[Rfam]
RNA sequence: AAGCCUUAAACUUAUGAGUAAGGAAAAUAAUAAUUCAGGGUGAUGGCCAAAUCCCAACUGCCAAUCAGAGAUGAAUUUUUGAGGGGGUCAAGGAUGACCCUAAGGUGACCUGCCUACUUUGCGAGAUGCUGGAAGUCACGAUCUGUCUGUCCC
Numbered sequence: 001a002a003g004c005c006u007u008a009a010a011c012u013u014a015u016g017a018g019u020a021a022g023g024a025a026a027a028u029a030a031u032a033a034u035u036c037a038g039g040g041u042g043a044u045g046g047c048c049a050a051a052u053c054c055c056a057a058c059u060g061c062c063a064a065u066c067a068g069a070g071a072u073g074a075a076u077u078u079u080u081g082a083g084g085g086g087g088u089c090a091a092g093g094a095u096g097a098c099c100c101u102a103a104g105g106u107g108a109c110c111u112g113c114c115u116a117c118u119u120u121g122c123g124a125g126a127u128g129c130u131g132g133a134a135g136u137c138a139c140g141a142u143c144u145g146u147c148u149g150u151c152c153c
Base pairs, nucleotide, nucleotide: 004023005022006021007020008019032052034050035049038048039047053070055068084153085152086151087150088149091148092147093146096143097142100135101134104130105129106128107127109125111123112122113121
This 153-nucleotide RNA sequence from Carlito syrichta belongs to the Rfam family "U12 minor spliceosomal RNA". On this family, see Tarn and Steitz, Trends Biochem Sci 1997: "Pre-mRNA splicing: the discovery of a new spliceosome doubles the challenge". The organism belongs to Carlito, within Eukaryota. The pairing is the family consensus, mapped onto this sequence. Its Rfam clan is "U2 clan".